[Rfam]
RNA sequence: AGCUGGUCCGAAGGUAGUGAAUUAUCUCACUUGAUUGUUCACAAUCACAGACUGAACUCCUUGUUCUACUACUUUCCCCGCUUCUCACUACUGCACUUGACUACUCUAAA
Numbered sequence: 001a002g003c004u005g006g007u008c009c010g011a012a013g014g015u016a017g018u019g020a021a022u023u024a025u026c027u028c029a030c031u032u033g034a035u036u037g038u039u040c041a042c043a044a045u046c047a048c049a050g051a052c053u054g055a056a057c058u059c060c061u062u063g064u065u066c067u068a069c070u071a072c073u074u075u076c077c078c079c080g081c082u083u084c085u086c087a088c089u090a091c092u093g094c095a096c097u098u099g100a101c102u103a104c105u106c107u108a109a110a
Stems, first nucleotide, its partner, number of pairs: 002105001004103005010098002014094002016089005039071001043067001
The family of this 110-nucleotide RNA sequence from Microcebus murinus is "Y RNA". The family's consensus secondary structure is taken from published work. Lineage of the source: Eukaryota > Teleostomi > Dipnotetrapodomorpha > Eutheria > Microcebus. About the family: Y RNAs are components of the Ro ribonucleoprotein particle (Ro RNP), in association with Ro60 and La proteins.